This 86-nucleotide sequence from Carlito syrichta belongs to the Rfam family "mir-3154 microRNA precursor family".
A search with the family's covariance model found it, with a score of 73 bits.
The source organism's lineage runs through Eukaryota, Teleostomi, Dipnotetrapodomorpha, Boreoeutheria and Carlito.
Rfam links the family to the GO terms miRNA-mediated post-transcriptional gene silencing and RISC complex.

RNA sequence: AGAUCCCUCUUUCCCAGAUCCAGCUCCUAUUCAUCCCUGCCACAUCAAAGGAGACAGAAAUGGAGUAAGGAGCAGAGAGGGAAUCA
Numbered sequence: 001a002g003a004u005c006c007c008u009c010u011u012u013c014c015c016a017g018a019u020c021c022a023g024c025u026c027c028u029a030u031u032c033a034u035c036c037c038u039g040c041c042a043c044a045u046c047a048a049a050g051g052a053g054a055c056a057g058a059a060a061u062g063g064a065g066u067a068a069g070g071a072g073c074a075g076a077g078a079g080g081g082a083a084u085c086a
Base pairs, nucleotide, nucleotide: 002085003084004082005081006080007079008078009077012076013075023073024072025071026070027069028068030065031064032063034062037057038056039055041053043051